[Rfam]
RNA sequence: CAACGUGCUCCGGGGUCGGUGUGAAUCCGAACCGGCGGUGACAGUCCGCGAACGCCUGGUGACAGGCGCCGAUCCGGUGGGAUUCCGGAACCGACGGUGAUGCGAGCGUCCGCUCGCUAGUCCGGAAGAGAGGCAGCACGUGG
Numbered sequence: 001c002a003a004c005g006u007g008c009u010c011c012g013g014g015g016u017c018g019g020u021g022u023g024a025a026u027c028c029g030a031a032c033c034g035g036c037g038g039u040g041a042c043a044g045u046c047c048g049c050g051a052a053c054g055c056c057u058g059g060u061g062a063c064a065g066g067c068g069c070c071g072a073u074c075c076g077g078u079g080g081g082a083u084u085c086c087g088g089a090a091c092c093g094a095c096g097g098u099g100a101u102g103c104g105a106g107c108g109u110c111c112g113c114u115c116g117c118u119a120g121u122c123c124g125g126a127a128g129a130g131a132g133g134c135a136g137c138a139c140g141u142g143g
Stems, first nucleotide, its partner, number of pairs: 003141007010132001017029003033093002035049004044091002053068002073089005095124003